[Rfam]
RNA sequence: UUGAAGCAGACGGAAGAGACCGUGUUUAGUCGCGGCGCCGAAGGAAUAAGCCUCUUUCUAUACCGGCAAGAGGUGACGAUCUCAGGCAAAAGGACCGUUUGUGGACA
Numbered sequence: 001u002u003g004a005a006g007c008a009g010a011c012g013g014a015a016g017a018g019a020c021c022g023u024g025u026u027u028a029g030u031c032g033c034g035g036c037g038c039c040g041a042a043g044g045a046a047u048a049a050g051c052c053u054c055u056u057u058c059u060a061u062a063c064c065g066g067c068a069a070g071a072g073g074u075g076a077c078g079a080u081c082u083c084a085g086g087c088a089a090a091a092g093g094a095c096c097g098u099u100u101g102u103g104g105a106c107a
Stems, first nucleotide, its partner, number of pairs: 006102008020035004037087003040083002044081002050074007
Description:
The family of this 107-nucleotide RNA sequence from Dethiosulfatibacter aminovorans is "Glycine riboswitch aptamer". The match comes from Rfam's covariance-model search (56 bits).